[Rfam]
RNA sequence: AUGCCCUAGGGAUGAACGAGUCCCUGAUAUUCUUCCAUCCUAUUUUCUUUUUCACUUGGUCAGACGAUUAUGUUGAUCAUCUUUUAGGGAUGGGAAAUUA
Numbered sequence: 001a002u003g004c005c006c007u008a009g010g011g012a013u014g015a016a017c018g019a020g021u022c023c024c025u026g027a028u029a030u031u032c033u034u035c036c037a038u039c040c041u042a043u044u045u046u047c048u049u050u051u052u053c054a055c056u057u058g059g060u061c062a063g064a065c066g067a068u069u070a071u072g073u074u075g076a077u078c079a080u081c082u083u084u085u086a087g088g089g090a091u092g093g094g095a096a097a098u099u100a
Stems, first nucleotide, its partner, number of pairs: 039094006059080002062077001063073001
This 100-nucleotide RNA from Nelumbo nucifera belongs to the Rfam family "Small nucleolar RNA snoR99".
It scores 44 bits against the family's covariance model.
Its family is annotated with nucleolus and RNA processing in the Gene Ontology.
Rfam 15.1 lists 733 matches to the family in 222 species.